[Rfam]
RNA sequence: GGCCAUCUCGGAGAUGGCGUUCCUCCGCGCUGUACCAUCAACCGUAGCGAUCGCUACUGAUGACGCCUACAAGAAC
Dot-bracket structure: .........[[[[..((((((.]]]].................((((......))))....)))))).........
Numbered sequence: 001g002g003c004c005a006u007c008u009c010g011g012a013g014a015u016g017g018c019g020u021u022c023c024u025c026c027g028c029g030c031u032g033u034a035c036c037a038u039c040a041a042c043c044g045u046a047g048c049g050a051u052c053g054c055u056a057c058u059g060a061u062g063a064c065g066c067c068u069a070c071a072a073g074a075a076c
Stems, first nucleotide, its partner, number of pairs: 010026004016067006044057004
Shown here is a 76-nucleotide sequence from Xanthomonas campestris, a member of the family "Fluoride riboswitch aptamer (crcB RNA motif)". The organism belongs to Xanthomonas campestris, within Bacteria. The base pairs follow the family's consensus structure, which is taken from published work. Rfam's curators put it in the seed alignment. Rfam 15.1 lists 2,293 matches to the family in 1,982 species.